The record is a 72-nucleotide RNA from Natronorubrum bangense, which matches "eL15-Euryarchaeota ribosomal protein leader" in Rfam. By type it is a cis-regulatory leader. The sequence is in the family's curated seed alignment.
RNA sequence: CCUGUGCAGCAUUGUGCUACAGGUCGGGAUGUGAUCCGCGGGGCAUGGCCCCGGUCAGGAUUGAACCAGGAA
Numbered sequence: 001c002c003u004g005u006g007c008a009g010c011a012u013u014g015u016g017c018u019a020c021a022g023g024u025c026g027g028g029a030u031g032u033g034a035u036c037c038g039c040g041g042g043g044c045a046u047g048g049c050c051c052c053g054g055u056c057a058g059g060a061u062u063g064a065a066c067c068a069g070g071a072a
Stems, first nucleotide, its partner, number of pairs: 001023005026067002033062005
Dot-bracket structure: (((((.............)))))..((.....(((((....................)))))...)).....